Description
The family of this 320-nucleotide sequence from Pampusana beccarii is "7SK RNA". Taxonomically the source falls in Pampusana (Eukaryota, Chordata, Dipnotetrapodomorpha, Archosauria).
[Rfam]
RNA sequence: GGAUGUGAGGUCAAUCUGGCUGUGACAUGUGUCACCCUAUUGAUUGCCAGGCCUGAUUUGGCUGAUCUGGUUGGCUAGGCAGCUGCCCCCUUCCUCCCUCACCAUUCCCUGUGCAUCCCUCCUGAAGCUGCAUGCUUGGUAGAAGAGGAUGACCUUUCCCAAUUGAGGUGUACCAUUCAUUGGUCAAGGGUAUACGGUAGCUGCACUCUCCCGCUAGAACCUACAAACAAACAAACAAACAAACAAGGAGUAGCUGGUGUAGAAAUGCCCAUAAUGGACGAUACUUGUCAAUAUGCUCGCAAACAGCUCUAAUGACAUAU
Numbered sequence: 001g002g003a004u005g006u007g008a009g010g011u012c013a014a015u016c017u018g019g020c021u022g023u024g025a026c027a028u029g030u031g032u033c034a035c036c037c038u039a040u041u042g043a044u045u046g047c048c049a050g051g052c053c054u055g056a057u058u059u060g061g062c063u064g065a066u067c068u069g070g071u072u073g074g075c076u077a078g079g080c081a082g083c084u085g086c087c088c089c090c091u092u093c094c095u096c097c098c099u100c101a102c103c104a105u106u107c108c109c110u111g112u113g114c115a116u117c118c119c120u121c122c123u124g125a126a127g128c129u130g131c132a133u134g135c136u137u138g139g140u141a142g143a144a145g146a147g148g149a150u151g152a153c154c155u156u157u158c159c160c161a162a163u164u165g166a167g168g169u170g171u172a173c174c175a176u177u178c179a180u181u182g183g184u185c186a187a188g189g190g191u192a193u194a195c196g197g198u199a200g201c202u203g204c205a206c207u208c209u210c211c212c213g214c215u216a217g218a219a220c221c222u223a224c225a226a227a228c229a230a231a232c233a234a235a236c237a238a239a240c241a242a243a244c245a246a247g248g249a250g251u252a253g254c255u256g257g258u259g260u261a262g263a264a265a266u267g268c269c270c271a272u273a274a275u276g277g278a279c280g281a282u283a284c285u286u287g288u289c290a291a292u293a294u295g296c297u298c299g300c301a302a303a304c305a306g307c308u309c310u311a312a313u314g315a316c317a318u319a320u
Stems, first nucleotide, its partner, number of pairs: 001108003005102006014092001018090002024087001026085002030081004035074002037070003042067004046062003117170001118168004122139004127135002140162001142160001147158003200268002206262002209259001211257003221250002224247001291320005